[Rfam]
Nucleotides: 064
Stems, first nucleotide, its partner, number of pairs: 008029008033057008
Number, partner (000 for none) and nucleotide at each position: 001000u002000g003000u004000c005000u006000c007000c008029u009028c010027u011026g012025a013024u014023c015022c016000u017000c018000c019000u020000u021000g022015g023014g024013a025012u026011u027010g028009g029008a030000u031000u032000u033057a034056g035055c036054c037053c038052g039051c040050a041000c042000c043000u044000u045000a046000c047000u048000c049000c050040u051039g052038c053037g054036g055035g056034c057033u058000u059000u060000u061000u062000u063000u064000a
Background: The record is a 64-nucleotide RNA, which matches "Betaproteobacteria toxic small RNA" in Rfam. From the family's description: Overexpression in amino aid rich medium attenuates growth, suggesting role in repressing amino acid intake and metabolism. A reference for the family is Kimelman et al. (2012), "A vast collection of microbial genes that are toxic to bacteria", Genome Res. Rfam 15.1 lists 951 matches to the family in 508 species. The family's consensus secondary structure was predicted with WAR.